[Rfam]
RNA sequence: UUGUGAGGAACUGCGAAUCUGAAGGAAGCCGGAGGUAAAUCUCCGCCAAGACGAACAGGAAGCAGACCAGACCGUUCCAUGUGGGUGAGUUUGCACAACAAAACGAAGCUCAAAACUAUCCGAGACAUGGUGCUGUAUAUCUGAUAGGUAUAUGGAGAGAAAGCUUGCGUU
Numbered sequence: 001u002u003g004u005g006a007g008g009a010a011c012u013g014c015g016a017a018u019c020u021g022a023a024g025g026a027a028g029c030c031g032g033a034g035g036u037a038a039a040u041c042u043c044c045g046c047c048a049a050g051a052c053g054a055a056c057a058g059g060a061a062g063c064a065g066a067c068c069a070g071a072c073c074g075u076u077c078c079a080u081g082u083g084g085g086u087g088a089g090u091u092u093g094c095a096c097a098a099c100a101a102a103a104c105g106a107a108g109c110u111c112a113a114a115a116c117u118a119u120c121c122g123a124g125a126c127a128u129g130g131u132g133c134u135g136u137a138u139a140u141c142u143g144a145u146a147g148g149u150a151u152a153u154g155g156a157g158a159g160a161a162a163g164c165u166u167g168c169g170u171u
Stems, first nucleotide, its partner, number of pairs: 001016005028171001030169002035164002040158006047148001050145001063143004071136002075132001077130005083111004089104004

This 171-nucleotide RNA from Mucilaginibacter oryzae belongs to the Rfam family "Group II catalytic intron D1-D4-3".
The organism belongs to Mucilaginibacter, within Bacteria.